A member of the RNA family "c-di-GMP-I riboswitch aptamer" from Litorilituus lipolyticus, 83 nucleotides long.
Rfam describes the family as follows. GEMM was predicted in a large-scale screen for bacterial structured RNA regulatory elements.
Taxonomically the source falls in Litorilituus (Bacteria, Pseudomonadati, Alteromonadales, Colwelliaceae).
RNA sequence: ACUCGACAAGGGCAAACCUAGUGAAAACUAGAGACGCAAAGUUACCGGUCUAAAGGGAAACCUAUGAUAGCGGGACUGCCAGA
Numbered sequence: 001a002c003u004c005g006a007c008a009a010g011g012g013c014a015a016a017c018c019u020a021g022u023g024a025a026a027a028c029u030a031g032a033g034a035c036g037c038a039a040a041g042u043u044a045c046c047g048g049u050c051u052a053a054a055g056g057g058a059a060a061c062c063u064a065u066g067a068u069a070g071c072g073g074g075a076c077u078g079c080c081a082g083a
Base pairs, nucleotide, nucleotide: 012037013036018031019030020029021028022027040077041076042075043074045073046072047071048068049067050066055062056061